The record is a 105-nucleotide RNA sequence from Anaerotignum neopropionicum, which matches "TPP riboswitch aptamer (THI element)" in Rfam. From the family's description: Vitamin B(1) in its active form thiamin pyrophosphate (TPP) is an essential coenzyme that is synthesised by coupling of pyrimidine and thiazole moieties in bacteria. Gene Ontology term of the family: thiamine pyrophosphate binding. Pairs were carried over by alignment from the consensus structure, which is taken from published work.
RNA sequence: AUAGAUACAAAUGGGAGCUUGUAGGCAGGCUGAGAGGAAGUACCCAUACUUCGACCAUAAACCUGAUUUGGAUAAUGCCAACGUAGGGACAUACUUCGGUUAUGA
Numbered sequence: 001a002u003a004g005a006u007a008c009a010a011a012u013g014g015g016a017g018c019u020u021g022u023a024g025g026c027a028g029g030c031u032g033a034g035a036g037g038a039a040g041u042a043c044c045c046a047u048a049c050u051u052c053g054a055c056c057a058u059a060a061a062c063c064u065g066a067u068u069u070g071g072a073u074a075a076u077g078c079c080a081a082c083g084u085a086g087g088g089a090c091a092u093a094c095u096u097c098g099g100u101u102a103u104g105a
Stems, first nucleotide, its partner, number of pairs: 011058004017030005037052005062087004068081004